[Rfam]
Nucleotides: 217
Stems, first nucleotide, its partner, number of pairs: 001043003005040003016033005023180005044162006057075006063202007076152008184214002187211009
Number, partner (000 for none) and nucleotide at each position: 001043u002042g003041c004000g005040u006039u007038a008000g009000g010000g011000c012000a013000a014000g015000g016033g017032g018031c019030a020029g021000c022000g023180c024179c025178a026177g027176a028000a029020c030019u031018g032017c033016c034000a035000a036000a037000g038007u039006g040005a041003g042002u043001g044162g045161c046160g047159c048158g049157u050000c051000a052000u053000a054000g055000a056000a057075g058074c059073g060072u061071a062070a063202g064201u065200u066199c067198g068197u069196u070062u071061u072060g073059u074058g075057u076152c077151a078150g079149g080148a081147u082146g083145g084000c085000a086000u087000u088000g089000c090000c091000a092000a093000g094000c095000c096000g097000g098000u099000g100000g101000a102000a103000a104000g105000a106000a107000c108000u109000c110000u111000a112000c113000c114000a115000a116000u117000u118000c119000g120000g121000a122000c123000g124000g125000a126000u127000g128000c129000g130000a131000a132000g133000u134000a135000a136000u137000g138000c139000a140000g141000a142000c143000g144000a145083c146082c147081a148080u149079c150078c151077u152076g153000u154000g155000c156000a157049g158048c159047g160046c161045g162044u163000u164000c165000u166000g167000g168000u169000a170000a171000a172000c173000a174000a175000c176027u177026c178025u179024g180023g181000g182000g183000g184214a185213a186000a187211c188210c189209g190208c191207u192206c193205g194204u195203g196069a197068a198067c199066g200065a201064a202063c203195c204194a205193c206192g207191g208190g209189c210188g211187g212000c213185u214184u215000u216000u217000c
Shown here is a 217-nucleotide RNA sequence, a member of the family "FuFi-1 RNA". The family's consensus secondary structure is taken from published work. It is annotated as a small RNA. It is one of the family's seed sequences.